This 101-nucleotide RNA from Sporomusa sphaeroides belongs to the Rfam family "pan motif". A search with the family's covariance model found it, with a score of 48 bits. Pairs were carried over by alignment from the consensus structure, which is taken from published work.
[Rfam]
RNA sequence: AUGGUAGCAUCCAUAUGGAGUUACACAUUCUAGUCUAUUGACGGCUAAAACUGCAUAGCCUUUGGAGCUCUGCUUGGAUUCAAACGAACCGGGACGGAGGG
Numbered sequence: 001a002u003g004g005u006a007g008c009a010u011c012c013a014u015a016u017g018g019a020g021u022u023a024c025a026c027a028u029u030c031u032a033g034u035c036u037a038u039u040g041a042c043g044g045c046u047a048a049a050a051c052u053g054c055a056u057a058g059c060c061u062u063u064g065g066a067g068c069u070c071u072g073c074u075u076g077g078a079u080u081c082a083a084a085c086g087a088a089c090c091g092g093g094a095c096g097g098a099g100g101g
Stems, first nucleotide, its partner, number of pairs: 001028003004024005010019002070097003073093005079088003